Shown here is a 178-nucleotide RNA sequence from Aphanothece hegewaldii, a member of the family "Antisense RNA which regulates isiA expression". The match comes from Rfam's covariance-model search (123 bits). A reference for the family is Duhring et al. (2006), "An internal antisense RNA regulates expression of the photosynthesis gene isiA", Proc Natl Acad Sci U S A.
[Rfam]
RNA sequence: GAUAACCAAAAAUGGUAAACGGAUCUAAAGUGGGAUUAGUAAUUACACGAACAUUGUUAAUAGCGGGGUCAUAAAUACCACCCCAGUUCAUUGCUUUGGCGACAAAUAAUAAAGCGGCUACACCGAGAAAGAGGAGAUGAUGACCUAAAAUUAAACCUAACUGUUUAGCAUCAUUCCA
Numbered sequence: 001g002a003u004a005a006c007c008a009a010a011a012a013u014g015g016u017a018a019a020c021g022g023a024u025c026u027a028a029a030g031u032g033g034g035a036u037u038a039g040u041a042a043u044u045a046c047a048c049g050a051a052c053a054u055u056g057u058u059a060a061u062a063g064c065g066g067g068g069u070c071a072u073a074a075a076u077a078c079c080a081c082c083c084c085a086g087u088u089c090a091u092u093g094c095u096u097u098g099g100c101g102a103c104a105a106a107u108a109a110u111a112a113a114g115c116g117g118c119u120a121c122a123c124c125g126a127g128a129a130a131g132a133g134g135a136g137a138u139g140a141u142g143a144c145c146u147a148a149a150a151u152u153a154a155a156c157c158u159a160a161c162u163g164u165u166u167a168g169c170a171u172c173a174u175u176c177c178a
Base pairs, nucleotide, nucleotide: 136175137174138173139172140171141170145168146167147166148165